Rfam assigns this 218-nucleotide RNA sequence to the family "Group II catalytic intron D1-D4-6".
Group II introns are found in rRNA, tRNA and mRNA of organelles in fungi, plants and protists, and also in mRNA in bacteria.
It is one of the family's seed sequences.
The base pairs follow the family's consensus structure.
RNA sequence: UCCGGUUUAUCCAAGGUUUAGCCAACCAGAUAAUAGCGAGUCUUGGGAUGAUGCCGGUAACGGCAUCUGACAAGCGUAGACAGCAAGAAAGCAGGGUUGAAUAGUGAUUGAGCUUCGAAACGUUAACUUCAGUCGGUCGACGUCUUAACUGGUGCGGAAGACAAUAUCAUGUAAUGCGAUAUGGCGAGUGUUAUGUGGCACUGCGGAGUCAGAGAACC
Number, nucleotide and partner (000 for none) at each position: 001u000002c000003c000004g000005g000006u000007u000008u032009a031010u030011c029012c000013a000014a000015g027016g026017u025018u024019u187020a000021g185022c184023c000024a018025a017026c016027c015028a000029g011030a010031u009032a008033a000034u086035a000036g084037c083038g000039a000040g081041u080042c079043u078044u076045g075046g071047g000048a000049u000050g067051a066052u065053g064054c063055c062056g061057g000058u000059a000060a000061c056062g055063g054064c053065a052066u051067c050068u000069g000070a000071c046072a000073a000074g000075c045076g044077u000078a043079g042080a041081c040082a000083g037084c036085a000086a034087g000088a000089a000090a000091g000092c000093a000094g000095g000096g000097u000098u000099g000100a000101a000102u000103a000104g000105u000106g000107a000108u000109u212110g210111a000112g209113c208114u207115u206116c205117g204118a000119a000120a000121c000122g000123u000124u000125a000126a000127c000128u000129u000130c203131a202132g201133u200134c000135g199136g162137u161138c160139g000140a000141c156142g155143u154144c000145u000146u000147a000148a000149c000150u000151g000152g000153u000154g143155c142156g141157g000158a000159a000160g138161a137162c136163a000164a000165u000166a000167u198168c197169a196170u195171g194172u193173a192174a191175u190176g189177c188178g000179a000180u000181a000182u000183g000184g022185c021186g000187a019188g177189u176190g175191u174192u173193a172194u171195g170196u169197g168198g167199c135200a133201c132202u131203g130204c117205g116206g115207a114208g113209u112210c110211a000212g109213a000214g000215a000216a000217c000218c000